[Rfam]
RNA sequence: UUUGAAAAAAGGCAAAGCAAAGGAAACUUUGUGACGCAAAACUAUAGGGUCUGAGUCUUGCAAUGGAUAUGACAGCCAGUUGUCAAA
Numbered sequence: 001u002u003u004g005a006a007a008a009a010a011g012g013c014a015a016a017g018c019a020a021a022g023g024a025a026a027c028u029u030u031g032u033g034a035c036g037c038a039a040a041a042c043u044a045u046a047g048g049g050u051c052u053g054a055g056u057c058u059u060g061c062a063a064u065g066g067a068u069a070u071g072a073c074a075g076c077c078a079g080u081u082g083u084c085a086a087a
Stems, first nucleotide, its partner, number of pairs: 012037002017032006040081004047077002049073003056067003
RNA: c-di-GMP-I riboswitch aptamer